[Rfam]
RNA sequence: CCAUCUAUUUGGCAAACCCUGCGAAAGCAGGGGACGCAAAGCUAUGAGUCUAAGGCUGAACAGGCUAUGAUCGUCAAGCUGCAACG
Numbered sequence: 001c002c003a004u005c006u007a008u009u010u011g012g013c014a015a016a017c018c019c020u021g022c023g024a025a026a027g028c029a030g031g032g033g034a035c036g037c038a039a040a041g042c043u044a045u046g047a048g049u050c051u052a053a054g055g056c057u058g059a060a061c062a063g064g065c066u067a068u069g070a071u072c073g074u075c076a077a078g079c080u081g082c083a084a085c086g
Stems, first nucleotide, its partner, number of pairs: 012037002017032006040080004045076003048071003055065003
c-di-GMP-I riboswitch aptamer: an 86-nucleotide RNA from Anaerotalea alkaliphila. The match comes from Rfam's covariance-model search (73 bits). The family's consensus secondary structure is taken from published work. The organism belongs to Anaerotalea, within Bacteria.